[Rfam]
RNA sequence: CAUCAAAAUCCGUGCCGUAAAUUGCGCGUUCCCGUGCGAUCGCGUAUACUUCGUGCGUUGAUGUAACACAGUGUGCUCUGCGGUCACCAGCCGCAAACGCUGUAAAAAAAACCUCGCUCCGGCGGGGUUUUUU
Numbered sequence: 001c002a003u004c005a006a007a008a009u010c011c012g013u014g015c016c017g018u019a020a021a022u023u024g025c026g027c028g029u030u031c032c033c034g035u036g037c038g039a040u041c042g043c044g045u046a047u048a049c050u051u052c053g054u055g056c057g058u059u060g061a062u063g064u065a066a067c068a069c070a071g072u073g074u075g076c077u078c079u080g081c082g083g084u085c086a087c088c089a090g091c092c093g094c095a096a097a098c099g100c101u102g103u104a105a106a107a108a109a110a111a112c113c114u115c116g117c118u119c120c121g122g123c124g125g126g127g128u129u130u131u132u133u
Base pairs, nucleotide, nucleotide: 002062003061004060005059006058011057012056019051020050023046024045025044026043027042028041030039031038069102070101071100074099075098077096079095080094081093082092083091107132108131109130110129111128112127113126114125115124116123117122